[Rfam]
RNA sequence: GGUCCUGAGUACCAGCUGCAAGCCCCGGCUCGCUGGUCGGCAACCCUCCGCUGCGGUGGGGUGCCCCGGGUGACGACCUGGCGACGGCGAUCGACUGUCGCAAGCGCAGCCC
Numbered sequence: 001g002g003u004c005c006u007g008a009g010u011a012c013c014a015g016c017u018g019c020a021a022g023c024c025c026c027g028g029c030u031c032g033c034u035g036g037u038c039g040g041c042a043a044c045c046c047u048c049c050g051c052u053g054c055g056g057u058g059g060g061g062u063g064c065c066c067c068g069g070g071u072g073a074c075g076a077c078c079u080g081g082c083g084a085c086g087g088c089g090a091u092c093g094a095c096u097g098u099c100g101c102a103a104g105c106g107c108a109g110c111c112c
Base pairs, nucleotide, nucleotide: 001078002077003076004075009038011037012036013035014034015033016032021030022029039065040064041063044061045060046059048056049055081101082100083099084098085097086096087095088093
RNA: SAM (S-adenosyl methionine) riboswitch aptamer
Organism: Geodermatophilus sp. Leaf369